[Rfam]
RNA sequence: AACACUUGAGGAUAGAAAAGGCAGCUAUCGCCCAUGUAGGAAAUGUAGGAAAGGUCGCCCUACCAAGUGUU
Numbered sequence: 001a002a003c004a005c006u007u008g009a010g011g012a013u014a015g016a017a018a019a020g021g022c023a024g025c026u027a028u029c030g031c032c033c034a035u036g037u038a039g040g041a042a043a044u045g046u047a048g049g050a051a052a053g054g055u056c057g058c059c060c061u062a063c064c065a066a067g068u069g070u071u
Stems, first nucleotide, its partner, number of pairs: 001071008011029005020056003031040001045063005

Shown here is a 71-nucleotide RNA sequence from Fusobacterium necrophorum, a member of the family "skipping-rope RNA". The sequence is in the family's curated seed alignment. NCBI's taxonomy places the organism under Bacteria, Fusobacteriati, Fusobacteriota, Fusobacteriia, Fusobacterium necrophorum subsp. funduliforme.